[Rfam]
RNA: Glycine riboswitch aptamer
RNA sequence: GGACACAUCUCUGGAGAGUUCCGCUGAAAAGAUGCGGACGCCGAAGGUGCAAAGGGAUCUUUGAUCCCGAAUCUCUCAGGCAAAAGGACAGGGCUGGCAGC
Numbered sequence: 001g002g003a004c005a006c007a008u009c010u011c012u013g014g015a016g017a018g019u020u021c022c023g024c025u026g027a028a029a030a031g032a033u034g035c036g037g038a039c040g041c042c043g044a045a046g047g048u049g050c051a052a053a054g055g056g057a058u059c060u061u062u063g064a065u066c067c068c069g070a071a072u073c074u075c076u077c078a079g080g081c082a083a084a085a086g087g088a089c090a091g092g093g094c095u096g097g098c099a100g101c
Stems, first nucleotide, its partner, number of pairs: 006096002009093005020038004040081003043077002047075001049073001054067003